[Rfam]
Rfam assigns this 79-nucleotide sequence from Echeneis naucrates to the family "Small nucleolar RNA SNORD72". Rfam links the family to the GO terms RNA processing and nucleolus. The family has 16 seed sequences and 726 matches in Rfam 15.1. The match comes from Rfam's covariance-model search (68 bits). Taxonomically the source falls in Echeneis (Eukaryota, Vertebrata, Euteleostomi, Osteoglossocephalai). The literature on the family includes a 2001 paper in EMBO J by Huttenhofer et al., "RNomics: an experimental approach that identifies 201 candidates for novel, small, non-messenger RNAs in mouse".
RNA sequence: UGCUUACCAAUGAUGGUUUAAAAAAAAUGUCUGAACAAAUGAUCUCAAAAUGACAUCAUUAUUUUUUCUGAGGUAAGCA
Numbered sequence: 001u002g003c004u005u006a007c008c009a010a011u012g013a014u015g016g017u018u019u020a021a022a023a024a025a026a027a028u029g030u031c032u033g034a035a036c037a038a039a040u041g042a043u044c045u046c047a048a049a050a051u052g053a054c055a056u057c058a059u060u061a062u063u064u065u066u067u068c069u070g071a072g073g074u075a076a077g078c079a
Base pairs, nucleotide, nucleotide: 002078003077004076005075006074007073008072